[Rfam]
RNA sequence: UGGAAGAGUGAUACACGAGAUGCAUGAGUUAAGUUUUUCGUCACAGUUUCUUCCUAUAAAAAAAAAAGUUGCCUUCUGAUGACUGUGAUUUGUGAAGUCUUAAUUUGCAGACAGAUACGGGGCACACAAAA
Numbered sequence: 001u002g003g004a005a006g007a008g009u010g011a012u013a014c015a016c017g018a019g020a021u022g023c024a025u026g027a028g029u030u031a032a033g034u035u036u037u038u039c040g041u042c043a044c045a046g047u048u049u050c051u052u053c054c055u056a057u058a059a060a061a062a063a064a065a066a067a068g069u070u071g072c073c074u075u076c077u078g079a080u081g082a083c084u085g086u087g088a089u090u091u092g093u094g095a096a097g098u099c100u101u102a103a104u105u106u107g108c109a110g111a112c113a114g115a116u117a118c119g120g121g122g123c124a125c126a127c128a129a130a131a
Stems, first nucleotide, its partner, number of pairs: 002054006015041004022034002025031001070124006083110003088105001090103002